[Rfam]
RNA: Bacterial RNase P class A
RNA sequence: UCAGAGGGCCGGGCGGCCGCGGCGUGGCGGGUAACUUCCACGGCGAGGAAAGUCCGGGCUCCACGAAAUAACGGUGCCAGCUAACGGCUGGCUGGGGAAACCCAAGGGACAGUGCAACAGAGAGCAGGUCGCUAAGGCCUAGGCCAAGCGAAAGUGAAAGGGUGCGGUAAGAGCGCACCGCGGACCCGGCAACGGGGACGGCAUGGUAAACCCCACCGGGAGCAAGACCGAAUAGGGACGGCGCGGGGAGCAAUCCCCUAGGCAGAUUUCGGCCGAGACCGUCCGGGUUGGUUGCUUGAGGCCGGGAGCGAUCCCGGCCCUAGAGGAAUGGUCGCCCAUCCGCCUACCUCCACAAGAGGCGGCGGUGGACAGAACCCGGCUUACAGGCCCUCUGGCAGU
Numbered sequence: 001u002c003a004g005a006g007g008g009c010c011g012g013g014c015g016g017c018c019g020c021g022g023c024g025u026g027g028c029g030g031g032u033a034a035c036u037u038c039c040a041c042g043g044c045g046a047g048g049a050a051a052g053u054c055c056g057g058g059c060u061c062c063a064c065g066a067a068a069u070a071a072c073g074g075u076g077c078c079a080g081c082u083a084a085c086g087g088c089u090g091g092c093u094g095g096g097g098a099a100a101c102c103c104a105a106g107g108g109a110c111a112g113u114g115c116a117a118c119a120g121a122g123a124g125c126a127g128g129u130c131g132c133u134a135a136g137g138c139c140u141a142g143g144c145c146a147a148g149c150g151a152a153a154g155u156g157a158a159a160g161g162g163u164g165c166g167g168u169a170a171g172a173g174c175g176c177a178c179c180g181c182g183g184a185c186c187c188g189g190c191a192a193c194g195g196g197g198a199c200g201g202c203a204u205g206g207u208a209a210a211c212c213c214c215a216c217c218g219g220g221a222g223c224a225a226g227a228c229c230g231a232a233u234a235g236g237g238a239c240g241g242c243g244c245g246g247g248g249a250g251c252a253a254u255c256c257c258c259u260a261g262g263c264a265g266a267u268u269u270c271g272g273c274c275g276a277g278a279c280c281g282u283c284c285g286g287g288u289u290g291g292u293u294g295c296u297u298g299a300g301g302c303c304g305g306g307a308g309c310g311a312u313c314c315c316g317g318c319c320c321u322a323g324a325g326g327a328a329u330g331g332u333c334g335c336c337c338a339u340c341c342g343c344c345u346a347c348c349u350c351c352a353c354a355a356g357a358g359g360c361g362g363c364g365g366u367g368g369a370c371a372g373a374a375c376c377c378g379g380c381u382u383a384c385a386g387g388c389c390c391u392c393u394g395g396c397a398g399u
Stems, first nucleotide, its partner, number of pairs: 001395010011384001012336007020045002023042005050382003054379005059222004072218005077091005092106001093104004107213002112211002114207002129153001131149003136145003161179006180202001181200002185196004226293004236284006268277003300319008